[Rfam]
RNA sequence: UGAUAUCAGGGUUAAAAGGUCAAAAGAUCGUUCGUGCUUGCACGAUAAGACUUUUGACCUUGGAACCCGCCAAACAUGAGAAAGAAGCGAUUUACGUAGUAAAUCAGCGGAUUUCGAAUGUUUGAGAAUUGCGGGAGCUGCUUUGCAGCGAAGCAAUUCGUGGAUAUCA
Numbered sequence: 001u002g003a004u005a006u007c008a009g010g011g012u013u014a015a016a017a018g019g020u021c022a023a024a025a026g027a028u029c030g031u032u033c034g035u036g037c038u039u040g041c042a043c044g045a046u047a048a049g050a051c052u053u054u055u056g057a058c059c060u061u062g063g064a065a066c067c068c069g070c071c072a073a074a075c076a077u078g079a080g081a082a083a084g085a086a087g088c089g090a091u092u093u094a095c096g097u098a099g100u101a102a103a104u105c106a107g108c109g110g111a112u113u114u115c116g117a118a119u120g121u122u123u124g125a126g127a128a129u130u131g132c133g134g135g136a137g138c139u140g141c142u143u144u145g146c147a148g149c150g151a152a153g154c155a156a157u158u159c160g161u162g163g164a165u166a167u168c169a
Stems, first nucleotide, its partner, number of pairs: 001169007010067004016061011028050002031047001032045005071124007080115004087108002089105007126159007137149004
Dot-bracket structure: (((((((..((((..(((((((((((.((.((((((....))))).).)))))))))))))..))))...(((((((..((((...(((((((((...))))))).))...))))..))))))).(((((((....((((.....))))...)))))))...)))))))
The family of this 169-nucleotide sequence from Firmicutes bacterium CAG:95 is "Clostridiales-1 RNA". The organism belongs to Bacillota, within Bacteria.